[Rfam]
RNA sequence: CUGGAAUGAUGACAAGUAGCCAAAUCAGACAUGAAUUGUGCUCCUUGAGGCUUCCAAGCUUUGAGUUGAAGUGUGAAUCUCUGAUGAUAAAUCACGGGAUUGGUUAUUAUUUCUGACCGGG
Numbered sequence: 001c002u003g004g005a006a007u008g009a010u011g012a013c014a015a016g017u018a019g020c021c022a023a024a025u026c027a028g029a030c031a032u033g034a035a036u037u038g039u040g041c042u043c044c045u046u047g048a049g050g051c052u053u054c055c056a057a058g059c060u061u062u063g064a065g066u067u068g069a070a071g072u073g074u075g076a077a078u079c080u081c082u083g084a085u086g087a088u089a090a091a092u093c094a095c096g097g098g099a100u101u102g103g104u105u106a107u108u109a110u111u112u113c114u115g116a117c118c119g120g121g
Base pairs, nucleotide, nucleotide: 001120002119003118004117
This 121-nucleotide RNA sequence from Rhynchospora breviuscula belongs to the Rfam family "small nucleolar RNA snoR127". The source organism's lineage runs through Eukaryota, Mesangiospermae, Cyperaceae, Rhynchosporeae and Rhynchospora. For this family Rfam cites "Mining small RNA sequencing data: a new approach to identify small nucleolar RNAs in Arabidopsis" (Chen and Wu, Nucleic Acids Res, 2009).